[Rfam]
RNA sequence: CGGGGUGUGGCGAAGCUUGGUAUCGCGCAUGGUUCGGGUCCAUGAGGCCGCGGGUUCGAAUCCCGCCACUCCGA
Dot-bracket structure: (((((((..((((.........)))).(((((.......))))).....(((((.......)))))))))))).